[Rfam]
RNA: mir-26 microRNA precursor family
Organism: Microcaecilia unicolor
RNA sequence: CCACAGCCGGGUUCAAGUAAUCCAGGAUAGGCUGUUUCCAUGGCAACGCGGCCUACUCUUGAUUACUUGUUCCAGGAGGCGG
Numbered sequence: 001c002c003a004c005a006g007c008c009g010g011g012u013u014c015a016a017g018u019a020a021u022c023c024a025g026g027a028u029a030g031g032c033u034g035u036u037u038c039c040a041u042g043g044c045a046a047c048g049c050g051g052c053c054u055a056c057u058c059u060u061g062a063u064u065a066c067u068u069g070u071u072c073c074a075g076g077a078g079g080c081g082g
Base pairs, nucleotide, nucleotide: 002081004079007076008075010073011072014069015068016067017066018065019064020063021062022061024059025058026057028055029054030053031052032051033050